[Rfam]
RNA: ZMP/ZTP riboswitch aptamer (pfl RNA motif)
RNA sequence: UUCGUCUCACGCAACUGGCGAAAAAGCAGCGAUUCUCUAUGUAAAUCACUGCGAAAGAUGGGCAUCCAUCGGGGAGCGUGAGAUCCAGAGUUGAACACUGCAGCACUGAGCUGUCACGUGAUCUUCUCAGCCGUACGCCUGGGCAGCCUGA
Number, nucleotide and partner (000 for none) at each position: 001u000002u000003c000004g084005u083006c082007u081008c080009a079010c078011g077012c076013a000014a000015c073016u072017g139018g138019c137020g136021a000022a000023a000024a000025a000026g000027c000028a000029g000030c000031g000032a000033u000034u000035c000036u000037c000038u000039a000040u000041g000042u000043a000044a000045a000046u000047c000048a000049c000050u000051g000052c000053g000054a000055a000056a000057g000058a069059u068060g067061g066062g000063c000064a000065u000066c061067c060068a059069u058070c000071g000072g016073g015074g000075a000076g012077c011078g010079u009080g008081a007082g006083a005084u004085c000086c000087a000088g000089a000090g000091u000092u000093g000094a000095a000096c000097a000098c000099u000100g000101c000102a000103g000104c000105a000106c000107u000108g000109a000110g000111c000112u000113g000114u000115c000116a000117c000118g000119u000120g000121a000122u000123c000124u000125u000126c000127u000128c146129a000130g144131c143132c142133g000134u000135a000136c020137g019138c018139c017140u000141g000142g132143g131144c130145a000146g128147c000148c000149u000150g000151a000